[Rfam]
RNA sequence: GAGUUUUUGAGAACCAUUUGAACCACUACUUGAUUCAAAUGGUUCUCAAAAA
Numbered sequence: 001g002a003g004u005u006u007u008u009g010a011g012a013a014c015c016a017u018u019u020g021a022a023c024c025a026c027u028a029c030u031u032g033a034u035u036c037a038a039a040u041g042g043u044u045c046u047c048a049a050a051a052a
Base pairs, nucleotide, nucleotide: 007049008048009047010046011045012044013043014042015041016040017039018038019037020036021035022034024032025031

Overview: Shown here is a 52-nucleotide RNA from Coptis chinensis, a member of the family "Plastid-ccsA-ndhD-1 3UTR RNA". Rfam's curators write: Plastid-ccsA-ndhD-1 is a non-coding RNA (ncRNA) recognised in plastids. It was found in the three prime untranslated region (3UTR) of ccsA and ndhD genes, its 3UTR location suggests a role in transcript maturation. The base pairs follow the family's consensus structure, which was predicted with LocARNA. Clan: Plastid-ccsA_ndhD 3UTR RNA clan. It is annotated as a cis-regulatory element. A reference for the family is Richter et al. (2023), "Retrograde signaling in plants: A critical review focusing on the GUN pathway and beyond", Plant Commun.